[Rfam]
RNA sequence: GAAGCGGGAACCGGGCACGGCCAAGGCCGGUCAGACCCGGGGUGCCUCACCGAAAGGUGAGGCGGCA
Numbered sequence: 001g002a003a004g005c006g007g008g009a010a011c012c013g014g015g016c017a018c019g020g021c022c023a024a025g026g027c028c029g030g031u032c033a034g035a036c037c038c039g040g041g042g043u044g045c046c047u048c049a050c051c052g053a054a055a056g057g058u059g060a061g062g063c064g065g066c067a
Base pairs, nucleotide, nucleotide: 011040012039013038014037015036018029019028020027021026044063045062046061047060048059049058050057051056